RNA sequence: GACACGGGGGUUGCGAUCCCCCCGCGAGGCGACAUGCCCAAGAAUCGCGUCCUGUUUUCACGAAAGGACGCAGCAUG
Numbered sequence: 001g002a003c004a005c006g007g008g009g010g011u012u013g014c015g016a017u018c019c020c021c022c023c024g025c026g027a028g029g030c031g032a033c034a035u036g037c038c039c040a041a042g043a044a045u046c047g048c049g050u051c052c053u054g055u056u057u058u059c060a061c062g063a064a065a066g067g068a069c070g071c072a073g074c075a076u077g
Stems, first nucleotide, its partner, number of pairs: 005024006047071006

Annotation
This 77-nucleotide RNA belongs to the Rfam family "chrB-a RNA". Rfam classes the family as a cis-regulatory element.